[Rfam]
The family of this 158-nucleotide RNA from Chania multitudinisentens is "STAXI RNA". Rfam classes the family as a small RNA. The organism belongs to Chania multitudinisentens, within Bacteria.
RNA sequence: CGUUGUCUCAGACAACAGCCAAAGUCCCUGUGAUUUGAGAGGGACGCCUUCGGGCAAUCACAAGCCAAUGCGACCAUGACCUGAGAGGACGCGCUUUCGAGCGGUAACCCCCCUGAACCUUUGAGAGAGGGGAUCGCAGUUUUGCGAUGAAGGUACAC
Numbered sequence: 001c002g003u004u005g006u007c008u009c010a011g012a013c014a015a016c017a018g019c020c021a022a023a024g025u026c027c028c029u030g031u032g033a034u035u036u037g038a039g040a041g042g043g044a045c046g047c048c049u050u051c052g053g054g055c056a057a058u059c060a061c062a063a064g065c066c067a068a069u070g071c072g073a074c075c076a077u078g079a080c081c082u083g084a085g086a087g088g089a090c091g092c093g094c095u096u097u098c099g100a101g102c103g104g105u106a107a108c109c110c111c112c113c114u115g116a117a118c119c120u121u122u123g124a125g126a127g128a129g130g131g132g133a134u135c136g137c138a139g140u141u142u143u144g145c146g147a148u149g150a151a152g153g154u155a156c157a158c
Stems, first nucleotide, its partner, number of pairs: 002016006024045005030061006046055003070092003074088001077107001079105003093102003110132005117154005133148006